[Rfam]
RNA sequence: CUGUGGUGCAUUGUAGUUGCAUUGCAUGUGCCUGUACUUGUGCAAUGUUUCUGCAGUGCAGCACUG
Numbered sequence: 001c002u003g004u005g006g007u008g009c010a011u012u013g014u015a016g017u018u019g020c021a022u023u024g025c026a027u028g029u030g031c032c033u034g035u036a037c038u039u040g041u042g043c044a045a046u047g048u049u050u051c052u053g054c055a056g057u058g059c060a061g062c063a064c065u066g
Stems, first nucleotide, its partner, number of pairs: 001066001003064002006062001007060010019048001021046007
A member of the RNA family "mir-33 microRNA precursor family" from Conger conger, 66 nucleotides long.
Gene Ontology terms of the family: RISC complex and gene silencing by miRNA.
The match comes from Rfam's covariance-model search (73 bits).
Rfam 15.1 lists 1,467 matches to the family in 815 species.
The literature on the family includes a 2009 paper in BMC Genomics by Li et al., "Direct sequencing and expression analysis of a large number of miRNAs in Aedes aegypti and a multi-species survey of novel mosquito miRNAs".
Lineage of the source: Eukaryota > Bilateria > Chordata > Teleostei > Conger.